Source information:
Small nucleolar RNA SNORA22: a 135-nucleotide RNA from Neogobius melanostomus. NCBI's taxonomy places the organism under Eukaryota, Euteleosteomorpha, Eurypterygia, Neogobiini, Neogobius. A search with the family's covariance model found it, with a score of 86 bits. ACA22 is a member of the H/ACA class of snoRNA that guide the sites of modification of uridines to pseudouridines.
[Rfam]
RNA sequence: AUGCACAGAGAACACCCAGAGAGGCUCAUGUGGGCUUCUCUGGUUUUGAAUCUAUGCUAAAUCAACUCUGGUCAUUUCCUCUGCAUAAAGAGAGCCCCCGUCUCACUUUCAUGCAUUCAGUUGAUCAGAACAUGC
Numbered sequence: 001a002u003g004c005a006c007a008g009a010g011a012a013c014a015c016c017c018a019g020a021g022a023g024g025c026u027c028a029u030g031u032g033g034g035c036u037u038c039u040c041u042g043g044u045u046u047u048g049a050a051u052c053u054a055u056g057c058u059a060a061a062u063c064a065a066c067u068c069u070g071g072u073c074a075u076u077u078c079c080u081c082u083g084c085a086u087a088a089a090g091a092g093a094g095c096c097c098c099c100g101u102c103u104c105a106c107u108u109u110c111a112u113g114c115a116u117u118c119a120g121u122u123g124a125u126c127a128g129a130a131c132a133u134g135c
Base pairs, nucleotide, nucleotide: 003057004056005055007053008052010051013048014047016043017042018041019040020039022037024035025034026033061072062071063070064069081120082119083118084113085112086111088108089107090106092104093103094102